Shown here is a 59-nucleotide RNA sequence from Myotis myotis, a member of the family "Selenocysteine insertion sequence 1".
Its family is annotated with selenocysteine incorporation in the Gene Ontology.
A reference for the family is Lambert et al. (2002), "A survey of metazoan selenocysteine insertion sequences", Biochimie.
NCBI's taxonomy places the organism under Eukaryota, Deuterostomia, Gnathostomata, Amniota, Myotis.
Pairs were carried over by alignment from the consensus structure, which is taken from published work.
Rfam classes the family as a cis-regulatory element.

RNA sequence: GCUGCGCAUGAUGGCUGGGUCUGAAAUCCUAGAAGGGCCCAGCUUGAUGUCCCUGCAGU
Number, nucleotide and partner (000 for none) at each position: 001g059002c058003u057004g056005c055006g000007c000008a000009u000010g000011a000012u000013g044014g043015c042016u041017g040018g039019g038020u037021c036022u035023g000024a000025a000026a000027u034028c000029c000030u000031a000032g000033a000034a027035g022036g021037g020038c019039c018040c017041a016042g015043c014044u013045u000046g000047a000048u000049g000050u000051c000052c000053c000054u000055g005056c004057a003058g002059u001